[Rfam]
RNA sequence: UGUGAGAACACUCGUUCAGGAACUCGGCAAAUUGACCCCGUAACUUCGGGAGAAGGGGUGCCUGCCUUGCGCAGGCCGCAGAGAAUAGCAUCAGGCGACUGUUUACUAAAAACACAGGUCUCCGCUAAGUCGUCAAGACGACGUAUGGGGGCUGACGCCUGCCCAAUGCUGGAAGGUUAAAAGGAGGGGUGAGAUCAUAUCAGGCCCUGAAUUGAAGCCCCAGUGAAUGGCGGCCGUAACUAUAACGGUCCUAAGGUAGCGAAAUUCCUUGUCGGGUAAGUUCCGACCCGCACGAAUGGCGUAACGAUCUGAUGACUGUCUUAACGAGUGGCACA
Numbered sequence: 001u002g003u004g005a006g007a008a009c010a011c012u013c014g015u016u017c018a019g020g021a022a023c024u025c026g027g028c029a030a031a032u033u034g035a036c037c038c039c040g041u042a043a044c045u046u047c048g049g050g051a052g053a054a055g056g057g058g059u060g061c062c063u064g065c066c067u068u069g070c071g072c073a074g075g076c077c078g079c080a081g082a083g084a085a086u087a088g089c090a091u092c093a094g095g096c097g098a099c100u101g102u103u104u105a106c107u108a109a110a111a112a113c114a115c116a117g118g119u120c121u122c123c124g125c126u127a128a129g130u131c132g133u134c135a136a137g138a139c140g141a142c143g144u145a146u147g148g149g150g151g152c153u154g155a156c157g158c159c160u161g162c163c164c165a166a167u168g169c170u171g172g173a174a175g176g177u178u179a180a181a182a183g184g185a186g187g188g189g190u191g192a193g194a195u196c197a198u199a200u201c202a203g204g205c206c207c208u209g210a211a212u213u214g215a216a217g218c219c220c221c222a223g224u225g226a227a228u229g230g231c232g233g234c235c236g237u238a239a240c241u242a243u244a245a246c247g248g249u250c251c252u253a254a255g256g257u258a259g260c261g262a263a264a265u266u267c268c269u270u271g272u273c274g275g276g277u278a279a280g281u282u283c284c285g286a287c288c289c290g291c292a293c294g295a296a297u298g299g300c301g302u303a304a305c306g307a308u309c310u311g312a313u314g315a316c317u318g319u320c321u322u323a324a325c326g327a328g329u330g331g332c333a334c335a
Stems, first nucleotide, its partner, number of pairs: 001335004009330008018321003035059005044049001060076006077081001089314007096306002100114003117153008125143001129139003156301004161231003166228002168224005175219003181213002186208005193200001232250006251255001261288001271287006

Notes:
The family of this 335-nucleotide part of an RNA from Chloracidobacterium thermophilum is "Bacterial large subunit ribosomal RNA". The base pairs follow the family's consensus structure, which is taken from published work. Taxonomically the source falls in Chloracidobacterium thermophilum (Bacteria, Pseudomonadati, Acidobacteriota, Chloracidobacteriales).